RNA sequence: AGGUGUGAGGGCAAUCUUGCUGUGCAUCUGUCACCCCAUUGAUCACCAGGUUUGAUUUGGCUGAUUUGGCUGGCUAGGCAGGUGUCCCCUUUCUCCCUCACCAACCAAUAUAUGUCCCUCCCAAAGCUCUGUGCUUGGUUGAAGAGGACAAACUUCACUGAAAGAGGAGGACUGACCUUCAGUCAAGGGCAUACAAGUAGUUGUGGUCCCCUGCUAAAACCUCCAAACAAGCUCUCAAGAUGUAUUUGUAGGAGAAGGUAGUGUAGUCAAGCUUCCAAGACUCCAGACACAUCCAAAUGAGGUGCUGCAUGUGGCAGUCUGCCUUUUUU
Numbered sequence: 001a002g003g004u005g006u007g008a009g010g011g012c013a014a015u016c017u018u019g020c021u022g023u024g025c026a027u028c029u030g031u032c033a034c035c036c037c038a039u040u041g042a043u044c045a046c047c048a049g050g051u052u053u054g055a056u057u058u059g060g061c062u063g064a065u066u067u068g069g070c071u072g073g074c075u076a077g078g079c080a081g082g083u084g085u086c087c088c089c090u091u092u093c094u095c096c097c098u099c100a101c102c103a104a105c106c107a108a109u110a111u112a113u114g115u116c117c118c119u120c121c122c123a124a125a126g127c128u129c130u131g132u133g134c135u136u137g138g139u140u141g142a143a144g145a146g147g148a149c150a151a152a153c154u155u156c157a158c159u160g161a162a163a164g165a166g167g168a169g170g171a172c173u174g175a176c177c178u179u180c181a182g183u184c185a186a187g188g189g190c191a192u193a194c195a196a197g198u199a200g201u202u203g204u205g206g207u208c209c210c211c212u213g214c215u216a217a218a219a220c221c222u223c224c225a226a227a228c229a230a231g232c233u234c235u236c237a238a239g240a241u242g243u244a245u246u247u248g249u250a251g252g253a254g255a256a257g258g259u260a261g262u263g264u265a266g267u268c269a270a271g272c273u274u275c276c277a278a279g280a281c282u283c284c285a286g287a288c289a290c291a292u293c294c295a296a297a298u299g300a301g302g303u304g305c306u307g308c309a310u311g312u313g314g315c316a317g318u319c320u321g322c323c324u325u326u327u328u329u
Stems, first nucleotide, its partner, number of pairs: 002106002005101007013092002019088001024086001025084008034073002036069003041066004046060002115170002117167004121138004126134002139161003147156002200272003207265001209263001211261004221254004227249005296329002299325005304318005
7SK RNA: a 329-nucleotide RNA sequence from Orycteropus afer. Rfam 15.1 lists 49,373 matches to the family in 668 species. The family's consensus secondary structure is taken from published work. For this family Rfam cites "Transcription: surprising role for an elusive small nuclear RNA" (Blencowe, Curr Biol, 2002). Rfam's curators write: 7SK was discovered as an abundant small nuclear RNA in the mid-70s but a possible function has only recently been suggested. Two independent studies have found that 7SK RNA binds the CDK9/cyclin T complex (known as elongation factor P-TEFb). P-TEFb activates transcription by phosphorylating the C-terminal domain of RNA polymerase II. This process is negatively regulated by the 7SK RNP. The secondary structure of 7SK RNA shown here was proposed by Wasserman and Steitz on the basis of chemical modification and enzymatic cleavage experiments. This family contains a number of annotated pseudogenes and 7SK derived repeats. The threshold is artificially high to minimise the pseudogene count.